[Rfam]
RNA sequence: GCUUUAUCAAGAGCGGUGGAGGGACUGGCCCUAUGAAGCCCAGCAACCAGUAUUGUUUUUUAAUACAUUGGUGCUAAUUCCUACAGCUUAAGCUGAAAGAUAGGGG
Dot-bracket structure: .(((((((....(.(((...(((...[[)))......))))((((.((.(((((.......)))))...))))))...(]]..((((....))))..)))))))).
RNA: SAM riboswitch aptamer (S box leader)